[Rfam]
RNA sequence: CCUUCGCUUUCUUUGGUUAUCUAGUUGUAUGAGAUUCGAUUGUCACAUCAUAAAGCUGGAUGACCAAAAGAAUCGCGGG
Numbered sequence: 001c002c003u004u005c006g007c008u009u010u011c012u013u014u015g016g017u018u019a020u021c022u023a024g025u026u027g028u029a030u031g032a033g034a035u036u037c038g039a040u041u042g043u044c045a046c047a048u049c050a051u052a053a054a055g056c057u058g059g060a061u062g063a064c065c066a067a068a069a070g071a072a073u074c075g076c077g078g079g
Stems, first nucleotide, its partner, number of pairs: 001079003005075001008072003012068015028052005
A member of the RNA family "mir-9/mir-79 microRNA precursor family" from Bursaphelenchus okinawaensis, 79 nucleotides long. A search with the family's covariance model found it, with a score of 59 bits. Rfam 15.1 lists 5,647 matches to the family in 934 species. The source organism's lineage runs through Eukaryota, Eumetazoa, Ecdysozoa, Tylenchomorpha and Bursaphelenchus. Pairs were carried over by alignment from the consensus structure, which was predicted with RNAalifold. For this family Rfam cites "Identification of novel genes coding for small expressed RNAs" (Lagos-Quintana et al., Science, 2001).